The family of this 327-nucleotide RNA from Geotrypetes seraphini is "7SK RNA". Pairs were carried over by alignment from the consensus structure, which is taken from published work.

RNA sequence: GGGUGUGAGGGCGAUCUGGUUGCGACAUCUGUCACCCCAUUGAUCGCUAGGGUUGAUUUGGCUGAUCUGGCUGGCUAGGCGGGUGUCUCCUUCCUUCCUCACCGCUCCAUGCUUGUCCCUCCCGAAGCUCCACUCUCGGUCGAAGAGGAUGACUUCCUGAUAGAAGAAUUACCAUUCUUCGGUCAAGGGUAUACCAGUAACUGUGCUCCCCUGCUAGAACCUCCAAACAAGCUCAAGGUCCAUUUGUAGAAGAAUGUAGAGUAUUCAAACUCCAAGGCUGCACACACAUCCAGAUGAGGCACUGCAUGUGGCAGCUUGCCUUAUAAA
Numbered sequence: 001g002g003g004u005g006u007g008a009g010g011g012c013g014a015u016c017u018g019g020u021u022g023c024g025a026c027a028u029c030u031g032u033c034a035c036c037c038c039a040u041u042g043a044u045c046g047c048u049a050g051g052g053u054u055g056a057u058u059u060g061g062c063u064g065a066u067c068u069g070g071c072u073g074g075c076u077a078g079g080c081g082g083g084u085g086u087c088u089c090c091u092u093c094c095u096u097c098c099u100c101a102c103c104g105c106u107c108c109a110u111g112c113u114u115g116u117c118c119c120u121c122c123c124g125a126a127g128c129u130c131c132a133c134u135c136u137c138g139g140u141c142g143a144a145g146a147g148g149a150u151g152a153c154u155u156c157c158u159g160a161u162a163g164a165a166g167a168a169u170u171a172c173c174a175u176u177c178u179u180c181g182g183u184c185a186a187g188g189g190u191a192u193a194c195c196a197g198u199a200a201c202u203g204u205g206c207u208c209c210c211c212u213g214c215u216a217g218a219a220c221c222u223c224c225a226a227a228c229a230a231g232c233u234c235a236a237g238g239u240c241c242a243u244u245u246g247u248a249g250a251a252g253a254a255u256g257u258a259g260a261g262u263a264u265u266c267a268a269a270c271u272c273c274a275a276g277g278c279u280g281c282a283c284a285c286a287c288a289u290c291c292a293g294a295u296g297a298g299g300c301a302c303u304g305c306a307u308g309u310g311g312c313a314g315c316u317u318g319c320c321u322u323a324u325a326a327a
Stems, first nucleotide, its partner, number of pairs: 001108003005102007013093002018090002024087010035074002037070003042067004046062003118166001120164002122139004127135001140160003147156003202268001207263001209261001211259004221252002224249001227247005296322005302314004
Source information
The family is grouped with related families in Rfam's "7SK clan". It is annotated as a non-coding RNA gene. For this family Rfam cites "Transcription: surprising role for an elusive small nuclear RNA" (Blencowe, Curr Biol, 2002).